This 75-nucleotide RNA sequence from Crocodylus porosus belongs to the Rfam family "Mammalian CPEB3 ribozyme". The organism belongs to Crocodylus, within Eukaryota. The match comes from Rfam's covariance-model search (41 bits). Rfam describes the family as follows. The mammalian CPEB3 ribozyme is a self cleaving RNA located in the second intron of the CPEB3 gene which belongs to a family of genes regulating messenger RNA polyadenylation. This ribozyme is highly conserved and found only in mammals. Pairs were carried over by alignment from the consensus structure, which is taken from published work.

RNA sequence: UUGGAAGUUUAAGGCCAUAGCAGAAGUGUUCACAGUGCAGCCCUGUCAGGUACCAACGAAUCUGCAACUUCCACU
Numbered sequence: 001u002u003g004g005a006a007g008u009u010u011a012a013g014g015c016c017a018u019a020g021c022a023g024a025a026g027u028g029u030u031c032a033c034a035g036u037g038c039a040g041c042c043c044u045g046u047c048a049g050g051u052a053c054c055a056a057c058g059a060a061u062c063u064g065c066a067a068c069u070u071c072c073a074c075u
Stems, first nucleotide, its partner, number of pairs: 013042003019075002023071003026038003047064005053058001
Dot-bracket structure: ............[[[...((..((((((.......))).]]]....(((((.(....).)))))....)))..))